[Rfam]
RNA sequence: CUGAUCGGCGCGUCCGGGUCAAUUGCGGCUUGCAACACCCGAUCUCGCUCAACGUGCCUCCACGAAUGGAGGUUACGGAGGGAGAGCGCGUGACAGUCAG
Dot-bracket structure: (((((..((((((.((((....(((((...)))))..)))).((((.(((...........................))).))))))))))....)))))